[Rfam]
Nucleotides: 311
Base pairs, nucleotide, nucleotide: 001311002310003309004308005307006306008304009303010302011300012019013018026298029296030295032293033199034198035197036196040230041229042228043227045195046194047193048192049191050064051063052062053061054060065079066077067076068075069074080190081189085188086187087184088183102129103128104125105124106123108121109120110119111118112117137155138154139153140152141151142150156179157177158176159175160174161173162171163170164169203250204249205248206247213241214240215239216238217237218236221235222234223233224232225231257275259274260273261272262271263270264269
Number, partner (000 for none) and nucleotide at each position: 001311u002310a003309a004308g005307c006306c007000g008304g009303g010302u011300u012019c013018u014000g015000u016000g017000g018013g019012g020000a021000g022000g023000a024000a025000a026298g027000u028000c029296c030295g031000g032293g033199c034198u035197a036196c037000a038000c039000a040230g041229g042228g043227c044000a045195g046194a047193g048192u049191g050064c051063c052062g053061g054060a055000u056000a057000a058000c059000g060054u061053c062052c063051g064050g065079g066077g067076g068075g069074c070000g071000u072000g073000a074069g075068c076067c077066u078000a079065c080190g081189a082000c083000c084000a085188g086187u087184g088183c089000a090000a091000c092000a093000g094000a095000g096000a097000g098000c099000a100000g101000a102129c103128c104125g105124c106123c107000g108121u109120u110119u111118u112117c113000u114000u115000c116000g117112g118111a119110a120109a121108a122000a123106g124105g125104u126000a127000a128103g129102g130000g131000u132000g133000a134000a135000a136000g137155g138154g139153u140152g141151u142150g143000g144000u145000a146000a147000g148000a149000g150142c151141a152140c153139a154138c155137c156179g157177u158176g159175c160174c161173g162171g163170u164169g165000g166000u167000a168000a169164c170163a171162u172000u173161c174160g175159g176158c177157a178000g179156c180000a181000a182000g183088g184087u185000a186000a187086a188085c189081u190080c191049c192048a193047c194046u195045c196036g197035u198034a199033g200000c201000a202000a203250g204249a205248c206247c207000a208000a209000a210000u211000a212000g213241g214240a215239a216238c217237u218236c219000a220000a221235u222234c223233g224232g225231u226000g227043g228042c229041c230040c231225g232224c233223c234222g235221a236218g237217a238216g239215u240214u241213c242000g243000g244000g245000u246000a247206g248205g249204u250203u251000g252000c253000u254000u255000g256000a257275g258000c259274a260273u261272a262271c263270a264269a265000g266000u267000a268000a269264u270263u271262g272261u273260g274259u275257c276000c277000u278000a279000g280000a281000g282000g283000a284000a285000u286000g287000a288000u289000u290000g291000u292000c293032c294000a295030c296029g297000a298026c299000a300011g301000a302010a303009c304008c305000g306006g307005g308004c309003u310002u311001a
The record is a 311-nucleotide RNA sequence from Pasteurellaceae bacterium I17, which matches "Bacterial RNase P class A" in Rfam. The organism belongs to Pasteurellaceae, within Bacteria. Rfam links the family to the GO terms ribonuclease P activity, tRNA processing and dimeric ribonuclease P complex. The family's consensus secondary structure is taken from published work. From the family's description: Ribonuclease P (RNase P) is a ubiquitous endoribonuclease, found in archaea, bacteria and eukarya as well as chloroplasts and mitochondria.